[Rfam]
RNA sequence: GUGCAGGGCGCUUAGGGUUCCGUCGCCGCAUGGCGAGACUGGUCCGAGAAGCGUCACCCGCCCGGCAAAUUCCGGGUGGGCACACGGCGGGCCAAAAUCCCGGGAGAC
Numbered sequence: 001g002u003g004c005a006g007g008g009c010g011c012u013u014a015g016g017g018u019u020c021c022g023u024c025g026c027c028g029c030a031u032g033g034c035g036a037g038a039c040u041g042g043u044c045c046g047a048g049a050a051g052c053g054u055c056a057c058c059c060g061c062c063c064g065g066c067a068a069a070u071u072c073c074g075g076g077u078g079g080g081c082a083c084a085c086g087g088c089g090g091g092c093c094a095a096a097a098u099c100c101c102g103g104g105a106g107a108c
Base pairs, nucleotide, nucleotide: 007055008054009053010052011051012050015045016044020042021041022039023036024035025034026033027032057080058079059078060077061076062075063074064073065072083103085106089101090100091099
A member of the RNA family "Guanidine-I riboswitch aptamer" from Poseidonocella sedimentorum, 108 nucleotides long. The organism belongs to Poseidonocella, within Bacteria.